mir-129 microRNA precursor family: a 74-nucleotide RNA sequence from Nothobranchius furzeri.
Rfam 15.1 lists 1,242 matches to the family in 559 species.
A reference for the family is Lagos-Quintana et al. (2002), "Identification of tissue-specific microRNAs from mouse", Curr Biol.
Its family is annotated with long-term synaptic potentiation, synapse and RISC complex in the Gene Ontology.

RNA sequence: GUGGGUCUUUUUGCGGUCUGGGCUUGCUGUUUCAUAGGUGGUAGCCAGGAAGCCCUUACCCCAAAAAGUAUCUG
Numbered sequence: 001g002u003g004g005g006u007c008u009u010u011u012u013g014c015g016g017u018c019u020g021g022g023c024u025u026g027c028u029g030u031u032u033c034a035u036a037g038g039u040g041g042u043a044g045c046c047a048g049g050a051a052g053c054c055c056u057u058a059c060c061c062c063a064a065a066a067a068g069u070a071u072c073u074g
Base pairs, nucleotide, nucleotide: 007068008067009066010065011064012063013062015060016059017058020055021054022053023052025050027048028047
Dot-bracket structure: ......(((((((.(((..((((.(.((..................)).).))))..))).)))))))......